[Rfam]
Rfam assigns this 94-nucleotide sequence from Halalkalibacter nanhaiisediminis to the family "pan motif". The match comes from Rfam's covariance-model search (60 bits). The source organism's lineage runs through Bacteria, Bacillati, Bacilli, Bacillaceae and Halalkalibacter. The family's RNA type in Rfam is cis-regulatory element.
RNA sequence: UGGGCGGUAUCCAAUUAAUUGGAGCUGCACCGAAUCUUUAAAAAGUAAAUGAAUAACAGAUCUGCCUUGAUCUAUAUCGGACUAGGACAGAGGG
Dot-bracket structure: ((((((((.((((......))))))))).))).............................((((((.(.(((.....)))).))).)))....